Shown here is a 110-nucleotide sequence from Theropithecus gelada, a member of the family "Y RNA".
The family's RNA type in Rfam is non-coding RNA gene.
The base pairs follow the family's consensus structure, which is taken from published work.
Taxonomically the source falls in Theropithecus (Eukaryota, Eumetazoa, Gnathostomata, Primates).
RNA sequence: AGCUGGUCCAAAGGUAGUGAGUUACCUCAAUUGAUUAUGUAAUCAGUAACAGAUCAAACUUGUUCUACUCUCUUCCCCCACUUUUCACUAUUGCACUUGACUAGUCUAAA
Numbered sequence: 001a002g003c004u005g006g007u008c009c010a011a012a013g014g015u016a017g018u019g020a021g022u023u024a025c026c027u028c029a030a031u032u033g034a035u036u037a038u039g040u041a042a043u044c045a046g047u048a049a050c051a052g053a054u055c056a057a058a059c060u061u062g063u064u065c066u067a068c069u070c071u072c073u074u075c076c077c078c079c080a081c082u083u084u085u086c087a088c089u090a091u092u093g094c095a096c097u098u099g100a101c102u103a104g105u106c107u108a109a110a
Stems, first nucleotide, its partner, number of pairs: 002105007010098002014094002016089006042071001045069002